[Rfam]
RNA sequence: UGCUGUGAUGAUAUAAGCUUGUUCUUAUCCAGUGUUCAGUGAUAGCUGCCUGCUAUCAGCAUGCUGGUGCUUUUGAACUGAAGACACUUGACCCUGAGCA
Dot-bracket structure: (((..................(((......((((....(((((((.......))))).....))...))))........)))...............)))
The record is a 100-nucleotide sequence from Chelonoidis abingdonii, which matches "Small nucleolar RNA SNORD16" in Rfam. Rfam links the family to the GO terms RNA processing and nucleolus. A reference for the family is Huttenhofer et al. (2001), "RNomics: an experimental approach that identifies 201 candidates for novel, small, non-messenger RNAs in mouse", EMBO J. It is annotated as a C/D-box small nucleolar RNA. Pairs were carried over by alignment from the consensus structure, which was predicted with PFOLD.